[Rfam]
RNA sequence: CCUGUGGAGCGUCGAAAAAAACGCGAGUAGCCUUGGCAAAAGCGGACGCGUUGAAGCAGGAA
Numbered sequence: 001c002c003u004g005u006g007g008a009g010c011g012u013c014g015a016a017a018a019a020a021a022c023g024c025g026a027g028u029a030g031c032c033u034u035g036g037c038a039a040a041a042g043c044g045g046a047c048g049c050g051u052u053g054a055a056g057c058a059g060g061a062a
Stems, first nucleotide, its partner, number of pairs: 001060005009049005022044003030037002

Record summary: The record is a 62-nucleotide sequence, which matches "RAGATH-18 RNA" in Rfam. The family's consensus secondary structure is taken from published work.